[Rfam]
RNA sequence: AAAAAUAAAUAAAAGAUCCGUCGUAUAUUCUUGAGAAUAUGGCUCUAGAGUUUCUACCGACCACCGUAAAUGGUCUGACUACGAAGAAGAAUGAUUCCUAU
Dot-bracket structure: ..................(.(((((...(((.(((.......))).)))........((((((.......))))).)..))))).)...............
Numbered sequence: 001a002a003a004a005a006u007a008a009a010u011a012a013a014a015g016a017u018c019c020g021u022c023g024u025a026u027a028u029u030c031u032u033g034a035g036a037a038u039a040u041g042g043c044u045c046u047a048g049a050g051u052u053u054c055u056a057c058c059g060a061c062c063a064c065c066g067u068a069a070a071u072g073g074u075c076u077g078a079c080u081a082c083g084a085a086g087a088a089g090a091a092u093g094a095u096u097c098c099u100a101u
Stems, first nucleotide, its partner, number of pairs: 019086001021084005029049003033045003058077001059075005